Shown here is a 168-nucleotide RNA sequence from Schnuerera ultunensis, a member of the family "S10-Clostridia ribosomal protein leader".
Taxonomically the source falls in Schnuerera ultunensis (Bacteria, Bacillati, Tissierellia, Tepidimicrobiaceae).
It is annotated as a cis-regulatory leader.
RNA sequence: ACAUUGCGAUGAUACAAAAGGUUGCCCCGCAUUCAAUCCUAUAAAUAAAUUUUAAUGCUAAAAAAUACUUUUCAAUCCCAUAAAAUAGUAUAAUCGUAUUAUUUAUUUAGUGGAUUGAGUGCGGGGGGAAUUUUUGUUGAGAAUGUCCGGUUACAAAUCGGGCGACAG
Numbered sequence: 001a002c003a004u005u006g007c008g009a010u011g012a013u014a015c016a017a018a019a020g021g022u023u024g025c026c027c028c029g030c031a032u033u034c035a036a037u038c039c040u041a042u043a044a045a046u047a048a049a050u051u052u053u054a055a056u057g058c059u060a061a062a063a064a065a066u067a068c069u070u071u072u073c074a075a076u077c078c079c080a081u082a083a084a085a086u087a088g089u090a091u092a093a094u095c096g097u098a099u100u101a102u103u104u105a106u107u108u109a110g111u112g113g114a115u116u117g118a119g120u121g122c123g124g125g126g127g128g129a130a131u132u133u134u135u136g137u138u139g140a141g142a143a144u145g146u147c148c149g150g151u152u153a154c155a156a157a158u159c160g161g162g163c164g165a166c167a168g
Stems, first nucleotide, its partner, number of pairs: 014137003018134004025126015144167004150163003